Shown here is an 86-nucleotide RNA from Trichobilharzia regenti, a member of the family "Selenocysteine transfer RNA". Taxonomically the source falls in Trichobilharzia (Eukaryota, Eumetazoa, Neodermata, Digenea). The base pairs follow the family's consensus structure, which is taken from published work.
RNA sequence: GCCAGGAUUACCUUCGGUGGUUCGGGGUGCAGGCUUCAAGCCUGUAGCCAAUUAUCGUCGGAGUGGUUCGGCUCCACCUUCCUGGC
Numbered sequence: 001g002c003c004a005g006g007a008u009u010a011c012c013u014u015c016g017g018u019g020g021u022u023c024g025g026g027g028u029g030c031a032g033g034c035u036u037c038a039a040g041c042c043u044g045u046a047g048c049c050a051a052u053u054a055u056c057g058u059c060g061g062a063g064u065g066g067u068u069c070g071g072c073u074c075c076a077c078c079u080u081c082c083u084g085g086c
Stems, first nucleotide, its partner, number of pairs: 001086007012027006028046006048061002051058002063077004